[Rfam]
RNA sequence: UUCCGUGCAACGCUCCAUUAAGGUUUCUAAUAUAUGACUAACCCGUCCAUUUCCUGGACGCUGAGUGGCCCUGUCCACUCUUUUUGACGCCUCCCUGCUUCGACCUUCAGCCGCCCUUGAGGCGGCUGCUUUUUG
Number, nucleotide and partner (000 for none) at each position: 001u040002u000003c000004c012005g000006u000007g000008c000009a000010a000011c000012g004013c000014u036015c000016c000017a000018u000019u034020a033021a000022g031023g000024u029025u000026u000027c000028u000029a024030a000031u022032a000033u020034a019035u000036g014037a000038c000039u000040a001041a000042c000043c000044c000045g059046u058047c057048c056049a000050u000051u000052u000053c000054c000055u000056g048057g047058a046059c045060g000061c000062u000063g080064a079065g078066u077067g076068g075069c000070c000071c000072u000073g000074u000075c068076c067077a066078c065079u064080c063081u000082u000083u000084u000085u000086g099087a000088c097089g096090c000091c000092u000093c000094c000095c000096u089097g088098c000099u086100u000101c000102g000103a000104c000105c000106u000107u000108c128109a127110g126111c125112c124113g123114c122115c121116c000117u000118u000119g000120a000121g115122g114123c113124g112125g111126c110127u109128g108129c000130u000131u000132u000133u000134u000135g000
This 135-nucleotide RNA sequence from Chelatococcus asaccharovorans belongs to the Rfam family "Alphaproteobacterial sRNA BjrC1505". The source organism's lineage runs through Bacteria, Alphaproteobacteria, Hyphomicrobiales, Chelatococcaceae and Chelatococcus. The match comes from Rfam's covariance-model search (68 bits).